[Rfam]
RNA sequence: AGCUUCCGUCCACUCGGAUCGUCGGGCACGUACCUGCCCGUGGAAAGGAAUG
Numbered sequence: 001a002g003c004u005u006c007c008g009u010c011c012a013c014u015c016g017g018a019u020c021g022u023c024g025g026g027c028a029c030g031u032a033c034c035u036g037c038c039c040g041u042g043g044a045a046a047g048g049a050a051u052g
Stems, first nucleotide, its partner, number of pairs: 006047001009044004023040006
The family of this 52-nucleotide RNA from Tessaracoccus antarcticus is "msiK RNA". The organism belongs to Tessaracoccus, within Bacteria. The family's RNA type in Rfam is cis-regulatory element.